[Rfam]
RNA sequence: CCCUUUGGUCCUCGAUGCAGCCCCUGGAUGAGCUUGCAGUAUUUUCCUUAUAUGAUCAGGCCCCAUUGCUGGCGGCGCCGCUUGCCUGGAGCCUGAGAGGAUUAUGAAAAUAUGUCAGGCGAGGUGGGCCCGGGGGACCGGGGG
Numbered sequence: 001c002c003c004u005u006u007g008g009u010c011c012u013c014g015a016u017g018c019a020g021c022c023c024c025u026g027g028a029u030g031a032g033c034u035u036g037c038a039g040u041a042u043u044u045u046c047c048u049u050a051u052a053u054g055a056u057c058a059g060g061c062c063c064c065a066u067u068g069c070u071g072g073c074g075g076c077g078c079c080g081c082u083u084g085c086c087u088g089g090a091g092c093c094u095g096a097g098a099g100g101a102u103u104a105u106g107a108a109a110a111u112a113u114g115u116c117a118g119g120c121g122a123g124g125u126g127g128g129c130c131c132g133g134g135g136g137a138c139c140g141g142g143g144g
Stems, first nucleotide, its partner, number of pairs: 001144003005141009020130001022128003056096006063089002068085002071082004
A member of the RNA family "small Cajal body-specific RNA 17" from Diceros bicornis, 144 nucleotides long. The family's consensus secondary structure is taken from published work. Rfam classes the family as a small Cajal body RNA.